[Rfam]
RNA: Archaeal large subunit ribosomal RNA, nucleotides 651 to 904
Organism: Methanocorpusculum labreanum
RNA sequence: GAGUGUAUUCCGCUGGCGAGGUUAACCGGAAGGGCAGCCGCAGCGAAAGCGACAAGCGCGUAGUUUACCUGGCGCGGCGUACUAAUAGUGCGUGGAGUCAACGGGAUACGACCUGAAACCUGGUGAUCUAUGCCUGAGCAGGUUGAAGCGUGCCGAAAGGUGCGUGGAGGACCGCAUGCGGUAUUGAUAUGCAAAUCAUUCGCGUGACUUGGGUAUAGGAGUGAAAGAUUCAUCGAACCGGGUGUCAGCUGGUU
Numbered sequence: 001g002a003g004u005g006u007a008u009u010c011c012g013c014u015g016g017c018g019a020g021g022u023u024a025a026c027c028g029g030a031a032g033g034g035c036a037g038c039c040g041c042a043g044c045g046a047a048a049g050c051g052a053c054a055a056g057c058g059c060g061u062a063g064u065u066u067a068c069c070u071g072g073c074g075c076g077g078c079g080u081a082c083u084a085a086u087a088g089u090g091c092g093u094g095g096a097g098u099c100a101a102c103g104g105g106a107u108a109c110g111a112c113c114u115g116a117a118a119c120c121u122g123g124u125g126a127u128c129u130a131u132g133c134c135u136g137a138g139c140a141g142g143u144u145g146a147a148g149c150g151u152g153c154c155g156a157a158a159g160g161u162g163c164g165u166g167g168a169g170g171a172c173c174g175c176a177u178g179c180g181g182u183a184u185u186g187a188u189a190u191g192c193a194a195a196u197c198a199u200u201c202g203c204g205u206g207a208c209u210u211g212g213g214u215a216u217a218g219g220a221g222u223g224a225a226a227g228a229u230u231c232a233u234c235g236a237a238c239c240g241g242g243u244g245u246c247a248g249c250u251g252g253u254u
Stems, first nucleotide, its partner, number of pairs: 005109008014100004020039004026033002043050002056075004063068001078092004112252002115249001119242006128218011139206001141173004148165007178203004183199002186197002220230003